[Rfam]
RNA sequence: ACAAUCCUUCGGGGCAGGGUGAAAUUCCCAACCGGCGGUGAUCAAAGGGCCGCAGUUCCGCUUAUGCGAUAGGCGGCUGUUCUCCUUUGUCAGUCCGUGACCCGGCUCGCAAACGUGCAGGUCCCUCCAGGGCAUGCAUGGCUGCUUGACGGUGGACCUGGUGCGAAUCCGGGACCGACAGUAUAGUCUGGAUGGGAGAAGGAGAGG
Numbered sequence: 001a002c003a004a005u006c007c008u009u010c011g012g013g014g015c016a017g018g019g020u021g022a023a024a025u026u027c028c029c030a031a032c033c034g035g036c037g038g039u040g041a042u043c044a045a046a047g048g049g050c051c052g053c054a055g056u057u058c059c060g061c062u063u064a065u066g067c068g069a070u071a072g073g074c075g076g077c078u079g080u081u082c083u084c085c086u087u088u089g090u091c092a093g094u095c096c097g098u099g100a101c102c103c104g105g106c107u108c109g110c111a112a113a114c115g116u117g118c119a120g121g122u123c124c125c126u127c128c129a130g131g132g133c134a135u136g137c138a139u140g141g142c143u144g145c146u147u148g149a150c151g152g153u154g155g156a157c158c159u160g161g162u163g164c165g166a167a168u169c170c171g172g173g174a175c176c177g178a179c180a181g182u183a184u185a186g187u188c189u190g191g192a193u194g195g196g197a198g199a200a201g202g203a204g205a206g207g
Base pairs, nucleotide, nucleotide: 005203006202007201008200009199010198017029018028019027031187032186033177034176035098036097037096038095102152103151157173158172159171160170161169179190180189181188
Rfam assigns this 207-nucleotide RNA from Paenibacillus sp. UNC496MF to the family "FMN riboswitch aptamer (RFN element)".